[Rfam]
RNA sequence: CUACGGGGAUGAUACUAGGAAUUGAACUCUCUCUUUCUGAUGGGUUGGUGGAGAAAAUGUAAAGAUUCUGAGUAGC
Numbered sequence: 001c002u003a004c005g006g007g008g009a010u011g012a013u014a015c016u017a018g019g020a021a022u023u024g025a026a027c028u029c030u031c032u033c034u035u036u037c038u039g040a041u042g043g044g045u046u047g048g049u050g051g052a053g054a055a056a057a058u059g060u061a062a063a064g065a066u067u068c069u070g071a072g073u074a075g076c
Stems, first nucleotide, its partner, number of pairs: 001075004
Shown here is a 76-nucleotide RNA from Canis lupus, a member of the family "Small nucleolar RNA SNORD26". On this family, see Tycowski et al., Proc Natl Acad Sci U S A 1996: "A small nucleolar RNA requirement for site-specific ribose methylation of rRNA in Xenopus". Rfam classes the family as a C/D-box small nucleolar RNA. It is one of the family's seed sequences.